[Rfam]
The family of this 197-nucleotide RNA sequence from Actinomadura litoris is "c-di-AMP riboswitch aptamer (ydaO/yuaA leader)". Rfam's curators write: This family represents a conserved RNA structure found upstream of the ydaO and yuaA genes in Bacillus subtilis and related genes in other bacteria. The ydaO/yuaA element is thought to act as a genetic 'off' switch for the ydaO and yuaA genes in its native state. It is believed that the element may be triggered during osmotic shock leading to activation of ydaO, a predicted amino acid transporter gene, and members of the yuaA-yubG operon which code for KtrA and KtrB K+ transporters.

RNA sequence: GGUGAGGCAACGCCGAGUCCGCGCCCGCGCGGAGCCGGGGAACCAAUCGACCGGCGUCCGGGAGUCCGCUUCCGGACGGGCACACCGGUCCCCCGGGGUGAAUCGGCGCGUCCCUCCCGUCAGGUGAGAGCCGCCGUAGGGCCACUUCCACGCCCGAACCCGUCAGCUAACCCGGUAGGCGUCUUGGAAGAAGGAGU
Numbered sequence: 001g002g003u004g005a006g007g008c009a010a011c012g013c014c015g016a017g018u019c020c021g022c023g024c025c026c027g028c029g030c031g032g033a034g035c036c037g038g039g040g041a042a043c044c045a046a047u048c049g050a051c052c053g054g055c056g057u058c059c060g061g062g063a064g065u066c067c068g069c070u071u072c073c074g075g076a077c078g079g080g081c082a083c084a085c086c087g088g089u090c091c092c093c094c095g096g097g098g099u100g101a102a103u104c105g106g107c108g109c110g111u112c113c114c115u116c117c118c119g120u121c122a123g124g125u126g127a128g129a130g131c132c133g134c135c136g137u138a139g140g141g142c143c144a145c146u147u148c149c150a151c152g153c154c155c156g157a158a159c160c161c162g163u164c165a166g167c168u169a170a171c172c173c174g175g176u177a178g179g180c181g182u183c184u185u186g187g188a189a190g191a192a193g194g195a196g197u
Stems, first nucleotide, its partner, number of pairs: 011181004018033005034176006044095001096161003104136004139155004
It scores 68 bits against the family's covariance model.